[Rfam]
RNA sequence: UUGUCCUGGCCUAUGCUUUCCUCGCUGCCCUGUGCUCAGCUGCAGCAGGGUGGGGGGCUGGCAGGGCACCCACAGUCUCCCUCUCGGCUUAGAAGGGCUGUCCCAAGUACAGGGCUGGCUCUUAAAGGCACAAGAGGACAGU
Numbered sequence: 001u002u003g004u005c006c007u008g009g010c011c012u013a014u015g016c017u018u019u020c021c022u023c024g025c026u027g028c029c030c031u032g033u034g035c036u037c038a039g040c041u042g043c044a045g046c047a048g049g050g051u052g053g054g055g056g057g058c059u060g061g062c063a064g065g066g067c068a069c070c071c072a073c074a075g076u077c078u079c080c081c082u083c084u085c086g087g088c089u090u091a092g093a094a095g096g097g098c099u100g101u102c103c104c105a106a107g108u109a110c111a112g113g114g115c116u117g118g119c120u121c122u123u124a125a126a127g128g129c130a131c132a133a134g135a136g137g138a139c140a141g142u
Base pairs, nucleotide, nucleotide: 002068003067004066005065006064007063008062010061011060025056026055028050029049030048031047032046033045080137081136082135083134084133087129088128089127090126093123094122095121096120097119098118099117100115101114102113103112
The record is a 142-nucleotide sequence from Phyllostomus discolor, which matches "Small Cajal body specific RNA 11" in Rfam. Rfam classes the family as a small Cajal body RNA. A search with the family's covariance model found it, with a score of 109 bits. Rfam links the family to the GO terms RNA processing, nucleolus and Cajal body. Pairs were carried over by alignment from the consensus structure, which was predicted with RNAalifold.